[Rfam]
RNA: SAM riboswitch aptamer (S box leader)
Organism: Clostridium kluyveri
RNA sequence: AUCUUAUCAAGAGCGGUGGAGGGACUGGCCCUAUGAAACCCGACAACCAACAUUUUAUUAAAAUGUAUGGUGUUAAUUCCAGCAGAUUAUUUCUGAGAGAUAAGGA
Numbered sequence: 001a002u003c004u005u006a007u008c009a010a011g012a013g014c015g016g017u018g019g020a021g022g023g024a025c026u027g028g029c030c031c032u033a034u035g036a037a038a039c040c041c042g043a044c045a046a047c048c049a050a051c052a053u054u055u056u057a058u059u060a061a062a063a064u065g066u067a068u069g070g071u072g073u074u075a076a077u078u079c080c081a082g083c084a085g086a087u088u089a090u091u092u093c094u095g096a097g098a099g100a101u102a103a104g105g106a
Stems, first nucleotide, its partner, number of pairs: 002105007013041001015040003021031003025082004042074004047070002050066004078098001083095004